[Rfam]
RNA sequence: UGAUAGCUUUGAAGCGAGAGGUUGCUGCAACAUAUAAAAUAUGAUUGCAGGUUUUCCGUGGAGCGAAUGUCAAGUUAGGAAACUGACGGCAA
Numbered sequence: 001u002g003a004u005a006g007c008u009u010u011g012a013a014g015c016g017a018g019a020g021g022u023u024g025c026u027g028c029a030a031c032a033u034a035u036a037a038a039a040u041a042u043g044a045u046u047g048c049a050g051g052u053u054u055u056c057c058g059u060g061g062a063g064c065g066a067a068u069g070u071c072a073a074g075u076u077a078g079g080a081a082a083c084u085g086a087c088g089g090c091a092a
Stems, first nucleotide, its partner, number of pairs: 014059003018056004025050005068091004074087004
RNA: S10-Clostridia ribosomal protein leader